[Rfam]
RNA sequence: UUUUGUUCUCAGGGCGGGGUGCAAUUCCCCACCGGCGGUAACGCAUGGUCUGCUUCCAGAAACAUGCGAAGUCCGCGAGCGUUGCGGUGGCAGGUGAUUUCGCCAUGCCGCCGUGAGUCAGCAGAUCUGGUGAGAAUCCAGAACCGACGGUGACAGUCCGGAUGAAAGAGAACGGUG
Numbered sequence: 001u002u003u004u005g006u007u008c009u010c011a012g013g014g015c016g017g018g019g020u021g022c023a024a025u026u027c028c029c030c031a032c033c034g035g036c037g038g039u040a041a042c043g044c045a046u047g048g049u050c051u052g053c054u055u056c057c058a059g060a061a062a063c064a065u066g067c068g069a070a071g072u073c074c075g076c077g078a079g080c081g082u083u084g085c086g087g088u089g090g091c092a093g094g095u096g097a098u099u100u101c102g103c104c105a106u107g108c109c110g111c112c113g114u115g116a117g118u119c120a121g122c123a124g125a126u127c128u129g130g131u132g133a134g135a136a137u138c139c140a141g142a143a144c145c146g147a148c149g150g151u152g153a154c155a156g157u158c159c160g161g162a163u164g165a166a167a168g169a170g171a172a173c174g175g176u177g
Base pairs, nucleotide, nucleotide: 003175004174005173006172007171008170009169010168017029018028019027031157032156033146034145035076036075037074038073071144072143079122080121126142127141128140129139130138148160149159150158
RNA: FMN riboswitch aptamer (RFN element)